[Rfam]
RNA sequence: CCUUGUUCUCGGGGCGGGGUGAAAGUCCCCACCGGCGGUAAAGGAGCCUGUCUCUGAAGCCCGCGAGCGCAUUCUUGCUCUCCGCAAGGAUGGUCAGCAGAUCCGGUGUGAUUCCGGAGCCGACGGUUACAGUCCGGAUGAAAGAGAAUGUGA
Dot-bracket structure: ...(((((((......(((.......))).[[((((((....................[[))))..((............................))...(((((.......)))))]])).(((.....]]))).......)))))))...
Overview
This 153-nucleotide RNA sequence from Cohaesibacter sp. ES.047 belongs to the Rfam family "FMN riboswitch aptamer (RFN element)". Lineage of the source: Bacteria > Alphaproteobacteria > Hyphomicrobiales > Cohaesibacteraceae > Cohaesibacter. The base pairs follow the family's consensus structure, which is taken from published work. Rfam's curators write: The RFN element is a highly conserved domain that is found frequently in the 5'-untranslated regions of prokaryotic mRNAs that encode for flavin mononucleotide (FMN) biosynthesis and transport proteins. This element is a metabolite-dependent riboswitch that directly binds FMN in the absence of proteins. In Bacillus subtilis, the riboswitch most likely controls gene expression by causing premature transcription termination within the 5' untranslated region of the ribDEAHT operon and precluding access to the ribosome-binding site of ypaA mRNA.The FMN riboswitch structure, reported in present an FMN-bound six-stem junction, adopts a butterfly-like scaffold, stapled together by opposingly directed but nearly identically folded peripheral domains. Gene Ontology term of the family: FMN binding.